[Rfam]
Source information: The record is a 145-nucleotide RNA sequence from Galemys pyrenaicus, which matches "Small nucleolar RNA SNORA67" in Rfam. About the family: U67 belongs to the H/ACA class of snoRNAs which are thought to guide the sites of modification of uridines to pseudouridines. Taxonomically the source falls in Galemys (Eukaryota, Eumetazoa, Amniota, Talpidae). The match comes from Rfam's covariance-model search (144 bits). The family's RNA type in Rfam is H/ACA-box small nucleolar RNA.

RNA sequence: AUCCAAGGUGAUUCCCUCUCCAUGGGGCUUACUCUAGUGCCCCUCUAAAGGAAAGUAGCAACUUGGAAUAAAAUCUGGCAUGCCUGAGGUCUUAGGGGGAGAGGGGAUGCUUGUUUCCUUUGCCUGCCUUUGGCUGCCUACACAU
Numbered sequence: 001a002u003c004c005a006a007g008g009u010g011a012u013u014c015c016c017u018c019u020c021c022a023u024g025g026g027g028c029u030u031a032c033u034c035u036a037g038u039g040c041c042c043c044u045c046u047a048a049a050g051g052a053a054a055g056u057a058g059c060a061a062c063u064u065g066g067a068a069u070a071a072a073a074u075c076u077g078g079c080a081u082g083c084c085u086g087a088g089g090u091c092u093u094a095g096g097g098g099g100a101g102a103g104g105g106g107a108u109g110c111u112u113g114u115u116u117c118c119u120u121u122g123c124c125u126g127c128c129u130u131u132g133g134c135u136g137c138c139u140a141c142a143c144a145u
Stems, first nucleotide, its partner, number of pairs: 002067006009060002019052003024043005078135001081133001086128001094119002097116003